[Rfam]
This 100-nucleotide RNA sequence from Amborella trichopoda belongs to the Rfam family "MIR319 microRNA precursor family".
RNA sequence: CAGAAAUGGGGGUUCCUUUGAGGACAAAGAAGGCAUUUCGGAUUUUCUUUUUGGUGAUUUAAGCAGUCAUCCUUUGAACUGAAGGGAGCCCCUAAAGCUU
Numbered sequence: 001c002a003g004a005a006a007u008g009g010g011g012g013u014u015c016c017u018u019u020g021a022g023g024a025c026a027a028a029g030a031a032g033g034c035a036u037u038u039c040g041g042a043u044u045u046u047c048u049u050u051u052u053g054g055u056g057a058u059u060u061a062a063g064c065a066g067u068c069a070u071c072c073u074u075u076g077a078a079c080u081g082a083a084g085g086g087a088g089c090c091c092c093u094a095a096a097g098c099u100u
Stems, first nucleotide, its partner, number of pairs: 007094012022080002027075003
Dot-bracket structure: ......((((((((((((...((...(((...........................................)))...))..))))))))))))......
The family's consensus secondary structure was predicted with RNAalifold.
The match comes from Rfam's covariance-model search (64 bits).
Lineage of the source: Eukaryota > Spermatophyta > Amborellales > Amborellaceae > Amborella.
Rfam links the family to the GO terms miRNA-mediated post-transcriptional gene silencing and RISC complex.